Shown here is a 120-nucleotide RNA sequence from Dethiosulfatibacter aminovorans, a member of the family "Molybdenum/Tungsten riboswitch aptamer (Moco RNA motif)". Pairs were carried over by alignment from the consensus structure, which is taken from published work. Lineage of the source: Bacteria > Bacillati > Tissierellia > Dethiosulfatibacter > Dethiosulfatibacter aminovorans. The literature on the family includes a 2007 paper in Nucleic Acids Res by Weinberg et al., "Identification of 22 candidate structured RNAs in bacteria using the CMfinder comparative genomics pipeline".

RNA sequence: UACUUUUGUAUUAUUCAAGUGUGUCAAUUCUAAGGCUUUGCUAAGAAAGUCACACCGAUAGGGUAUGUUUGGAAACAGACAUAUCUCCCGUGUUUGGAAUGAAUAAUUAUAUUUGAUUUU
Dot-bracket structure: .....(....((((((..(((((.(..(((...(((...)))..))).).))))).....(((((((((((....)))))))))))((.......))...))))))....).........
Numbered sequence: 001u002a003c004u005u006u007u008g009u010a011u012u013a014u015u016c017a018a019g020u021g022u023g024u025c026a027a028u029u030c031u032a033a034g035g036c037u038u039u040g041c042u043a044a045g046a047a048a049g050u051c052a053c054a055c056c057g058a059u060a061g062g063g064u065a066u067g068u069u070u071g072g073a074a075a076c077a078g079a080c081a082u083a084u085c086u087c088c089c090g091u092g093u094u095u096g097g098a099a100u101g102a103a104u105a106a107u108u109a110u111a112u113u114u115g116a117u118u119u120u
Stems, first nucleotide, its partner, number of pairs: 006111001011106006019055005025049001028047003034042003061086011087097002